[Rfam]
RNA sequence: UCGCGUCUUCAGGGCGGGGCGAAAUUCCCCACCGGCGGUAGGCGGGGCAGCACCACCUUGGUGCUGGUUCCCCGCGAGCCCGCGAGCGCCCGGAGCCAGGCAUCGUCCGAGCCCCGGGGUCAGCAGAUCUGGCCACACACCAGAGCCGACGGUCACAGUCCGGAUGAAAGAAGAUGCGC
Numbered sequence: 001u002c003g004c005g006u007c008u009u010c011a012g013g014g015c016g017g018g019g020c021g022a023a024a025u026u027c028c029c030c031a032c033c034g035g036c037g038g039u040a041g042g043c044g045g046g047g048c049a050g051c052a053c054c055a056c057c058u059u060g061g062u063g064c065u066g067g068u069u070c071c072c073c074g075c076g077a078g079c080c081c082g083c084g085a086g087c088g089c090c091c092g093g094a095g096c097c098a099g100g101c102a103u104c105g106u107c108c109g110a111g112c113c114c115c116g117g118g119g120u121c122a123g124c125a126g127a128u129c130u131g132g133c134c135a136c137a138c139a140c141c142a143g144a145g146c147c148g149a150c151g152g153u154c155a156c157a158g159u160c161c162g163g164a165u166g167a168a169a170g171a172a173g174a175u176g177c178g179c
Base pairs, nucleotide, nucleotide: 003177004176005175006174007173008172009171010170017029018028019027031159032158033148034147035083036082037081038080086124087123128144129143130142131141132140150162151161152160
A member of the RNA family "FMN riboswitch aptamer (RFN element)" from Acidovorax sp. HDW3, 179 nucleotides long. The family's consensus secondary structure is taken from published work. From the family's description: The RFN element is a highly conserved domain that is found frequently in the 5'-untranslated regions of prokaryotic mRNAs that encode for flavin mononucleotide (FMN) biosynthesis and transport proteins.